[Rfam]
RNA: S10-Clostridia ribosomal protein leader
RNA sequence: UGACUGCGAUGAAGUGAAAGGUUGCUGACACACCCGGCCGCUUUGCCAUGGCGAGUGUGUGGGAAAUUUUCACGGAGAAUGUCUAUAUCAAUAUAGGCGA
Numbered sequence: 001u002g003a004c005u006g007c008g009a010u011g012a013a014g015u016g017a018a019a020g021g022u023u024g025c026u027g028a029c030a031c032a033c034c035c036g037g038c039c040g041c042u043u044u045g046c047c048a049u050g051g052c053g054a055g056u057g058u059g060u061g062g063g064a065a066a067u068u069u070u071c072a073c074g075g076a077g078a079a080u081g082u083c084u085a086u087a088u089c090a091a092u093a094u095a096g097g098c099g100a
Stems, first nucleotide, its partner, number of pairs: 014073003018070004025062002080099004086095002